sRNA-Xcc1: an 87-nucleotide RNA from Providencia alcalifaciens. The base pairs follow the family's consensus structure, which was predicted with RNAalifold. The family's RNA type in Rfam is small RNA. The family has 74 seed sequences and 421 matches in Rfam 15.1. A reference for the family is Chen et al. (2011), "sRNA-Xcc1, an integron-encoded transposon- and plasmid-transferred trans-acting sRNA, is under the positive control of the key virulence regulators HrpG and HrpX of Xanthomonas campestris pathovar campestris", RNA Biol. The sequence is in the family's curated seed alignment.
RNA sequence: GGUCGGGUAGCGUGCAAUACAUACAAUACCGAAAGGGAAAAUUGCAGGCCGUCUCGUAGCGGUGUUCAAGUGCCCGACCGCCCUCUG
Numbered sequence: 001g002g003u004c005g006g007g008u009a010g011c012g013u014g015c016a017a018u019a020c021a022u023a024c025a026a027u028a029c030c031g032a033a034a035g036g037g038a039a040a041a042u043u044g045c046a047g048g049c050c051g052u053c054u055c056g057u058a059g060c061g062g063u064g065u066u067c068a069a070g071u072g073c074c075c076g077a078c079c080g081c082c083c084u085c086u087g
Stems, first nucleotide, its partner, number of pairs: 001079009013046004018041001029036002048063005